Record summary: ffh sRNA: a 52-nucleotide sequence from Roseibium sp. RKSG952. A search with the family's covariance model found it, with a score of 57 bits. On this family, see Meyer et al., BMC Genomics 2009: "Identification of candidate structured RNAs in the marine organism 'Candidatus Pelagibacter ubique'".
RNA sequence: GUUCCCGGAGGUGAACAUCCGACAGCGCGUUGCGCCCUCGGGUGAUAUAUCG
Numbered sequence: 001g002u003u004c005c006c007g008g009a010g011g012u013g014a015a016c017a018u019c020c021g022a023c024a025g026c027g028c029g030u031u032g033c034g035c036c037c038u039c040g041g042g043u044g045a046u047a048u049a050u051c052g
Stems, first nucleotide, its partner, number of pairs: 016044007025035004